[Rfam]
RNA sequence: AAAAAGAAAAUAUUUUUUCCGUAGACAGUAGGUGCGAAAGCGUAAAAUAUAUUACCUACCUAGGUUAUGUAUAAUAGAUGAUAUUAUAGACCUUCCUUGUCUGCGGAAGGUCUUUUUUAGUAAAAGA
Numbered sequence: 001a002a003a004a005a006g007a008a009a010a011u012a013u014u015u016u017u018u019c020c021g022u023a024g025a026c027a028g029u030a031g032g033u034g035c036g037a038a039a040g041c042g043u044a045a046a047a048u049a050u051a052u053u054a055c056c057u058a059c060c061u062a063g064g065u066u067a068u069g070u071a072u073a074a075u076a077g078a079u080g081a082u083a084u085u086a087u088a089g090a091c092c093u094u095c096c097u098u099g100u101c102u103g104c105g106g107a108a109g110g111u112c113u114u115u116u117u118u119a120g121u122a123a124a125a126g127a
Stems, first nucleotide, its partner, number of pairs: 028059006034041002089112008098103001
Record summary:
Ribosomal protein L10 leader: a 127-nucleotide sequence from Clostridium puniceum. This family is a putative r-protein leader autoregulatory structure found in B. subtilis and other low-GC Gram-positive bacteria. It is annotated as a cis-regulatory leader. NCBI's taxonomy places the organism under Bacteria, Bacillati, Bacillota, Eubacteriales, Clostridium.